Rfam assigns this 84-nucleotide sequence from Mesobacillus selenatarsenatis to the family "c-di-GMP-I riboswitch aptamer". The base pairs follow the family's consensus structure, which is taken from published work. NCBI's taxonomy places the organism under Bacteria, Bacillota, Bacillaceae, Mesobacillus, Mesobacillus selenatarsenatis.
[Rfam]
RNA sequence: AUCCGAUAAUGGCAAACCCAGAGAAAUCUGGGGGCGCAAAGCUACAGGGGCUAAAGUCAUCGACCAUGCCAGCCAGUUGCCGAA
Numbered sequence: 001a002u003c004c005g006a007u008a009a010u011g012g013c014a015a016a017c018c019c020a021g022a023g024a025a026a027u028c029u030g031g032g033g034g035c036g037c038a039a040a041g042c043u044a045c046a047g048g049g050g051c052u053a054a055a056g057u058c059a060u061c062g063a064c065c066a067u068g069c070c071a072g073c074c075a076g077u078u079g080c081c082g083a084a
Stems, first nucleotide, its partner, number of pairs: 012037002017032006040078004047074002049070003056064003